Background: DUF3268 RNA: a 115-nucleotide RNA. It is annotated as a small RNA. It is one of the family's seed sequences.
RNA sequence: AGCAAGAUACUGCGCGCAGGCUCUCGAUACGCCGGGGCGCCUUGGCGUCAGACCUGCCGGCGCAGGCGGGGAAUCGUGACGGAGCCGCUGUCCCGCGGCCCCACAAAGCGCAGGU
Numbered sequence: 001a002g003c004a005a006g007a008u009a010c011u012g013c014g015c016g017c018a019g020g021c022u023c024u025c026g027a028u029a030c031g032c033c034g035g036g037g038c039g040c041c042u043u044g045g046c047g048u049c050a051g052a053c054c055u056g057c058c059g060g061c062g063c064a065g066g067c068g069g070g071g072a073a074u075c076g077u078g079a080c081g082g083a084g085c086c087g088c089u090g091u092c093c094c095g096c097g098g099c100c101c102c103a104c105a106a107a108g109c110g111c112a113g114g115u
Base pairs, nucleotide, nucleotide: 007115008114010113011112012111013110014109015108025076026075027074028073029048030047031046032045033044034043035042053070054069055068056067057066058065081102082101085098086097087096088095